[Rfam]
RNA sequence: UUGCACGUAGCCUCCCGGGCUCCUCUGAAAAUUUAUAGCUGAAGAAAGAAGCCCCAAUGCUCGUGCAAAAUCGAUGCCGUCAAGUGUUGCAGAUUUGUCGCGCUGUACCUUUUCUUCCACGGCUUAUCUGUGUCAAAUCGACGUCCACAUCU
Numbered sequence: 001u002u003g004c005a006c007g008u009a010g011c012c013u014c015c016c017g018g019g020c021u022c023c024u025c026u027g028a029a030a031a032u033u034u035a036u037a038g039c040u041g042a043a044g045a046a047a048g049a050a051g052c053c054c055c056a057a058u059g060c061u062c063g064u065g066c067a068a069a070a071u072c073g074a075u076g077c078c079g080u081c082a083a084g085u086g087u088u089g090c091a092g093a094u095u096u097g098u099c100g101c102g103c104u105g106u107a108c109c110u111u112u113u114c115u116u117c118c119a120c121g122g123c124u125u126a127u128c129u130g131u132g133u134c135a136a137a138u139c140g141a142c143g144u145c146c147a148c149a150u151c152u
Stems, first nucleotide, its partner, number of pairs: 003066005010060002017054005022048001024045003076145001078143004085135002088132006097123003
small nucleolar RNA snoR134: a 152-nucleotide RNA sequence from Sesamum indicum. The organism belongs to Sesamum, within Eukaryota. Its family is annotated with nucleolus and RNA processing in the Gene Ontology. A reference for the family is Chen and Wu (2009), "Mining small RNA sequencing data: a new approach to identify small nucleolar RNAs in Arabidopsis", Nucleic Acids Res. The base pairs follow the family's consensus structure, which was predicted with RNAalifold.